[Rfam]
RNA sequence: UGGCGCCCAACGUGGGGCCUGGAUACUGGGGACAAUGUGAGGGACAUGAAGGAGGAAAAAGGGGUGCGCACCCACUCAAAUAAUCCGGGGACACCGUGGGAGCCUGCCGCAACCGAGCUGAAGGAAAGUUGGUCAUUCAAUCAUGGGGCAAGAAUUAAGUCAGCAUCAGAUUUAUGUGAUAGAGUUAAGAGAAGCUCUACAGGCAAGAGGAGUAAAGGUUAAAACUGAGGAUUUAUUUCAUUUCUUUGAUUUUGUAAAGGACCUUUGUCCCU
Numbered sequence: 001u002g003g004c005g006c007c008c009a010a011c012g013u014g015g016g017g018c019c020u021g022g023a024u025a026c027u028g029g030g031g032a033c034a035a036u037g038u039g040a041g042g043g044a045c046a047u048g049a050a051g052g053a054g055g056a057a058a059a060a061g062g063g064g065u066g067c068g069c070a071c072c073c074a075c076u077c078a079a080a081u082a083a084u085c086c087g088g089g090g091a092c093a094c095c096g097u098g099g100g101a102g103c104c105u106g107c108c109g110c111a112a113c114c115g116a117g118c119u120g121a122a123g124g125a126a127a128g129u130u131g132g133u134c135a136u137u138c139a140a141u142c143a144u145g146g147g148g149c150a151a152g153a154a155u156u157a158a159g160u161c162a163g164c165a166u167c168a169g170a171u172u173u174a175u176g177u178g179a180u181a182g183a184g185u186u187a188a189g190a191g192a193a194g195c196u197c198u199a200c201a202g203g204c205a206a207g208a209g210g211a212g213u214a215a216a217g218g219u220u221a222a223a224a225c226u227g228a229g230g231a232u233u234u235a236u237u238u239c240a241u242u243u244c245u246u247u248g249a250u251u252u253u254g255u256a257a258a259g260g261a262c263c264u265u266u267g268u269c270c271c272u
Stems, first nucleotide, its partner, number of pairs: 006031003012026003037047002084125003092117001096110004134148001136147004156199002159195002207247006216234005257272001259270004
Mason-Pfizer monkey virus packaging signal: a 272-nucleotide RNA sequence from Nannospalax galili. The family's consensus secondary structure was predicted with PFOLD. NCBI's taxonomy places the organism under Eukaryota, Craniata, Muroidea, Spalacidae, Nannospalax. The match comes from Rfam's covariance-model search (156 bits). It is annotated as a cis-regulatory element. The literature on the family includes a 2004 paper in Virus Res by Mustafa et al., "Mutational analysis of the predicted secondary RNA structure of the Mason-Pfizer monkey virus packaging signal". This family represents a group of sequences that are related to the Mason-Pfizer monkey virus (MPMV) packaging signal. The packaging signal is located in the 5' UTR and is required for specific RNA encapsidation.